[Rfam]
The record is an 88-nucleotide RNA sequence from Sphingomonas sp. Leaf231, which matches "Glycine riboswitch aptamer" in Rfam.

RNA sequence: UGUGUCGACGUGGGAGAGACCGGGCAUGCCCGGCGCCGAAGGAGCAACCGCCCCGGAAACUCUCAGGCAGAAGGACCACGGCGGCGAC
Numbered sequence: 001u002g003u004g005u006c007g008a009c010g011u012g013g014g015a016g017a018g019a020c021c022g023g024g025c026a027u028g029c030c031c032g033g034c035g036c037c038g039a040a041g042g043a044g045c046a047a048c049c050g051c052c053c054c055g056g057a058a059a060c061u062c063u064c065a066g067g068c069a070g071a072a073g074g075a076c077c078a079c080g081g082c083g084g085c086g087a088c
Stems, first nucleotide, its partner, number of pairs: 006083002009080005020033004035068003038064002042062003048056002

Overview: The base pairs follow the family's consensus structure. The match comes from Rfam's covariance-model search (69 bits).